[Rfam]
This 292-nucleotide RNA from Lasius niger belongs to the Rfam family "Nuclear RNase P".
The family has 116 seed sequences and 3,848 matches in Rfam 15.1.
Pairs were carried over by alignment from the consensus structure, which is taken from published work.
Ribonuclease P (RNase P) is a ubiquitous endoribonuclease, found in archaea, bacteria and eukarya as well as chloroplasts and mitochondria.
Lineage of the source: Eukaryota > Mandibulata > Dicondylia > Formicoidea > Lasius.
The family's RNA type in Rfam is ribozyme.
RNA sequence: GCAGUUUUAAUCUAAUGGAAGGGGGUGAACAAACGAAGCAUAACAUUGCUAUAUUACAUCCCGGGAAGGUCUGAGAUAAGAUCGUUAAACGUUCUAGACGGACGGUAUCGCAAUGAUACGUACGAGAACCAGAAAUAGCUUUACGUUCUCCAAAAUGCCAGGGACGCUUUUUUAACAGCAGAGGCGACUGGAAACGAAAAGUUGGAAUCUCGUACGAUCCGCUUUUUUAGUAUAAUCCACAAGCCUGGUAUAAUUCAUACCUGGAACUCAAUUCAGACUAAUCUGAUGCUGU
Numbered sequence: 001g002c003a004g005u006u007u008u009a010a011u012c013u014a015a016u017g018g019a020a021g022g023g024g025g026u027g028a029a030c031a032a033a034c035g036a037a038g039c040a041u042a043a044c045a046u047u048g049c050u051a052u053a054u055u056a057c058a059u060c061c062c063g064g065g066a067a068g069g070u071c072u073g074a075g076a077u078a079a080g081a082u083c084g085u086u087a088a089a090c091g092u093u094c095u096a097g098a099c100g101g102a103c104g105g106u107a108u109c110g111c112a113a114u115g116a117u118a119c120g121u122a123c124g125a126g127a128a129c130c131a132g133a134a135a136u137a138g139c140u141u142u143a144c145g146u147u148c149u150c151c152a153a154a155a156u157g158c159c160a161g162g163g164a165c166g167c168u169u170u171u172u173u174a175a176c177a178g179c180a181g182a183g184g185c186g187a188c189u190g191g192a193a194a195c196g197a198a199a200a201g202u203u204g205g206a207a208u209c210u211c212g213u214a215c216g217a218u219c220c221g222c223u224u225u226u227u228u229a230g231u232a233u234a235a236u237c238c239a240c241a242a243g244c245c246u247g248g249u250a251u252a253a254u255u256c257a258u259a260c261c262u263g264g265a266a267c268u269c270a271a272u273u274c275a276g277a278c279u280a281a282u283c284u285g286a287u288g289c290u291g292u
Base pairs, nucleotide, nucleotide: 001292002291003290004289007286008285009284012243013242016239017238018237022062023061024060025059026058037050038049039048040047071276072275073274074273075272080219081218082217083216090104091103092102093101094100105119106118107117108116109115120215121214122213123212124211125210126209140201141200142199244264245263247261248260249259250258